[Rfam]
RNA: Small nucleolar RNA U6-53/MBII-28
Organism: Dinoponera quadriceps
RNA sequence: AUAUAAUGAUGAAUUUUGCCAUGCUAAUACGGAGAAAUCAUGUACAUGGAGAUCAUAUACUUGGAUUUCGCUGAGUUAAACUUAAACCACUGAAUUUC
Numbered sequence: 001a002u003a004u005a006a007u008g009a010u011g012a013a014u015u016u017u018g019c020c021a022u023g024c025u026a027a028u029a030c031g032g033a034g035a036a037a038u039c040a041u042g043u044a045c046a047u048g049g050a051g052a053u054c055a056u057a058u059a060c061u062u063g064g065a066u067u068u069c070g071c072u073g074a075g076u077u078a079a080a081c082u083u084a085a086a087c088c089a090c091u092g093a094a095u096u097u098c
Base pairs, nucleotide, nucleotide: 001097003095004094043059044058046056047055